[Rfam]
Small nucleolar RNA SNORA41: a 134-nucleotide RNA sequence from Chiloscyllium punctatum. A search with the family's covariance model found it, with a score of 85 bits.
RNA sequence: UUCCACAGGUACUGGUCUGAAAUUACUUGGUUUAUAGUAGUUUCAGGUUUCCUUCUGUGGGAUAGUAAGUGUUGUACUACUUUCAUUAGACCUUUAGUGUGACUUUAAAGGGCUCAGUAGUGCAACGGACAUGU
Dot-bracket structure: ..((((..........(((((((((............)))))))))..........)))).............(((((.........((.((((((.........)))))).))....)))))...........

Rfam 15.1 lists 676 matches to the family in 522 species. ACA41 is a member of the H/ACA class of snoRNA that guide the sites of modification of uridines to pseudouridines. Lineage of the source: Eukaryota > Metazoa > Chordata > Hemiscylliidae > Chiloscyllium. The family's consensus secondary structure was predicted with PFOLD.